Shown here is an 80-nucleotide RNA sequence from Megalops atlanticus, a member of the family "mir-17 microRNA precursor family". This family represents the microRNA (miRNA) precursor mir-17, family, which includes mir-20, mir-91, and mir-103. miRNAs are transcribed as ~70nt precursors (modelled here) and subsequently processed by the Dicer enzyme to give a ~22nt product. The family has 234 seed sequences and 4,687 matches in Rfam 15.1.

[Rfam]
RNA sequence: UCUGAGUGUCCAAAGUGCUGUUUGUGCAGGUAGCUGACUCACUAACCCUACUGCAAAACCAGCACUUCAUAACACACGGA
Numbered sequence: 001u002c003u004g005a006g007u008g009u010c011c012a013a014a015g016u017g018c019u020g021u022u023u024g025u026g027c028a029g030g031u032a033g034c035u036g037a038c039u040c041a042c043u044a045a046c047c048c049u050a051c052u053g054c055a056a057a058a059c060c061a062g063c064a065c066u067u068c069a070u071a072a073c074a075c076a077c078g079g080a
Stems, first nucleotide, its partner, number of pairs: 004077001006075002009072001013067008022058002025055003029052005